[Rfam]
RNA sequence: ACCAUCCUUUUCUUGGGGUUGCACUACUAUUCAAUGAGCGCCUGGUGAGGGCAGUACUGCUAACGCCUGAACAACAGCCCGCAUCAACUAGAGCUUUGCUUUAUCUUGGUGCAAUUUUUGGAAAA
Dot-bracket structure: .....((((.....))))..(((..(((.(((.....((.....))..))).)))..)))....................((((((..((((((...))))))...)))))).............

Rfam assigns this 125-nucleotide sequence from Enhydra lutris to the family "U4atac minor spliceosomal RNA". A reference for the family is Lorkovic et al. (2005), "Evolutionary conservation of minor U12-type spliceosome between plants and humans", RNA. Its family is annotated with spliceosomal tri-snRNP complex assembly, mRNA 5'-splice site recognition and U4atac snRNP in the Gene Ontology. The base pairs follow the family's consensus structure, which is taken from published work. Rfam's curators write: U4atac is an essential component of the minor U12-type spliceosome complex which is required for removal of the rarer class of eukaryotic introns (AT-AC, U12-type). The source organism's lineage runs through Eukaryota, Deuterostomia, Carnivora, Enhydra and Enhydra lutris.